[Rfam]
This 44-nucleotide RNA sequence from Streptomyces sp. belongs to the Rfam family "Guanidine-II riboswitch aptamer (mini-ykkC)".
Pairs were carried over by alignment from the consensus structure, which is taken from published work.
From the family's description: Simpler in structure and has fewer highly conserved nucleotide positions than the ykkC-yxkD leader.
RNA sequence: CCACCUGGACGACCUGGUCACCCACCUCGCCGGGGACGACUCCG
Numbered sequence: 001c002c003a004c005c006u007g008g009a010c011g012a013c014c015u016g017g018u019c020a021c022c023c024a025c026c027u028c029g030c031c032g033g034g035g036a037c038g039a040c041u042c043c044g
Base pairs, nucleotide, nucleotide: 003018004017005016007014008013031044032043033042034041035040